[Rfam]
RNA sequence: AUUAAAUAAAGGCAAAUCCAAAUGAAAAUUGGAGACGCAAAGUUACCGGUCUAAAGAAAGCAUAUUCAAUAUGAAAUGCUAUCAAUGGCAGCGGGGCCGCAAAU
Number, nucleotide and partner (000 for none) at each position: 001a000002u000003u000004a000005a000006a000007u000008a000009a000010a000011g000012g038013c037014a000015a000016a000017u033018c032019c031020a030021a000022a029023u028024g000025a000026a000027a000028a023029u022030u020031g019032g018033a017034g000035a000036c000037g013038c012039a000040a000041a000042g097043u096044u095045a000046c094047c093048g092049g089050u088051c087052u000053a000054a000055a000056g083057a082058a000059a080060g079061c078062a077063u076064a000065u000066u000067c000068a000069a000070u000071a000072u000073g000074a000075a000076a063077u062078g061079c060080u059081a000082u057083c056084a000085a000086u000087g051088g050089c049090a000091g000092c048093g047094g046095g044096g043097c042098c000099g000100c000101a000102a000103a000104u000

A member of the RNA family "c-di-GMP-I riboswitch aptamer" from Methylotenera versatilis, 104 nucleotides long. A search with the family's covariance model found it, with a score of 57 bits.